[Rfam]
Annotation
Rfam assigns this 80-nucleotide RNA from Azospirillum sp. TSO22-1 to the family "Makes More Granules Regulator RNA (mmgR)". A reference for the family is Ceizel Borella et al. (2016), "Expression of the Sinorhizobium meliloti small RNA gene mmgR is controlled by the nitrogen source", FEMS Microbiol Lett. The pairing is the family consensus, mapped onto this sequence. The source organism's lineage runs through Bacteria, Pseudomonadati, Pseudomonadota, Rhodospirillales and Azospirillum. Rfam classes the family as a small RNA. Its Rfam clan is "suhB sRNA clan".

RNA sequence: GACUACGGCACUCGUGCCGUGCGUUUCCUCCCUAGACUUCGGGCCGCCGUCGCUUGACGGCGGCCUUUUUUCUUGGGCGC
Numbered sequence: 001g002a003c004u005a006c007g008g009c010a011c012u013c014g015u016g017c018c019g020u021g022c023g024u025u026u027c028c029u030c031c032c033u034a035g036a037c038u039u040c041g042g043g044c045c046g047c048c049g050u051c052g053c054u055u056g057a058c059g060g061c062g063g064c065c066u067u068u069u070u071u072c073u074u075g076g077g078c079g080c
Stems, first nucleotide, its partner, number of pairs: 008022004042065009